[Rfam]
RNA sequence: CUGUCCUACGUCCGAGUUCCACUAAGCAAGUUUUGAGAUCGUUUUAAAAACAAAAACUUGACACGUUGAGCUCGUUCGUGGGAUGG
Number, nucleotide and partner (000 for none) at each position: 001c086002u085003g084004u083005c082006c081007u080008a079009c078010g077011u000012c000013c074014g073015a072016g071017u070018u069019c068020c000021a066022c065023u000024a000025a000026g000027c060028a059029a058030g057031u056032u055033u054034u053035g000036a000037g000038a000039u000040c000041g000042u000043u000044u000045u000046a000047a000048a000049a000050a000051c000052a000053a034054a033055a032056a031057c030058u029059u028060g027061a000062c000063a000064c000065g022066u021067u000068g019069a018070g017071c016072u015073c014074g013075u000076u000077c010078g009079u008080g007081g006082g005083a004084u003085g002086g001
The record is an 86-nucleotide RNA sequence from Drosophila melanogaster, which matches "mir-969 microRNA precursor family" in Rfam.
The source organism's lineage runs through Eukaryota, Arthropoda, Muscomorpha, Drosophilinae and Sophophora.
For this family Rfam cites "Evolutionary flux of canonical microRNAs and mirtrons in Drosophila" (Berezikov et al., Nat Genet, 2010).
It is one of the family's seed sequences.